[Rfam]
RNA sequence: GACCGACAUCAGGGAUUCAUUAUGCGAUCCCGCGCCCACCGCGAGGUAGGCGUUCAUGCCCAGCUCUUUCAUCUGCUGCUCGCCAAUCACGCGGGUCGUGAUGUUUUUGCUGUAGGCAUCCGCCAGCUGGCGCGCCUGAGAUGCCAGGUACGCAGGAUUACAAAUGUUAGGCGGCAUGUUGCCCAGAUCUUUUGC
Numbered sequence: 001g002a003c004c005g006a007c008a009u010c011a012g013g014g015a016u017u018c019a020u021u022a023u024g025c026g027a028u029c030c031c032g033c034g035c036c037c038a039c040c041g042c043g044a045g046g047u048a049g050g051c052g053u054u055c056a057u058g059c060c061c062a063g064c065u066c067u068u069u070c071a072u073c074u075g076c077u078g079c080u081c082g083c084c085a086a087u088c089a090c091g092c093g094g095g096u097c098g099u100g101a102u103g104u105u106u107u108u109g110c111u112g113u114a115g116g117c118a119u120c121c122g123c124c125a126g127c128u129g130g131c132g133c134g135c136c137u138g139a140g141a142u143g144c145c146a147g148g149u150a151c152g153c154a155g156g157a158u159u160a161c162a163a164a165u166g167u168u169a170g171g172c173g174g175c176a177u178g179u180u181g182c183c184c185a186g187a188u189c190u191u192u193u194g195c
Stems, first nucleotide, its partner, number of pairs: 005189002013031002017027002020024001033043003050059002062077003078135002081132005087126001091123006099112002102109002137162002140159003144155001167186002170183003
The family of this 195-nucleotide RNA sequence from Pantoea ananatis is "Yersinia sRNA 276". On this family, see Nuss et al., PLoS Genet 2015: "Transcriptomic profiling of Yersinia pseudotuberculosis reveals reprogramming of the Crp regulon by temperature and uncovers Crp as a master regulator of small RNAs". The family's consensus secondary structure was predicted with RNAfold. The source organism's lineage runs through Bacteria, Pseudomonadota, Gammaproteobacteria, Erwiniaceae and Pantoea ananatis. A search with the family's covariance model found it, with a score of 168 bits. Rfam classes the family as an antisense RNA.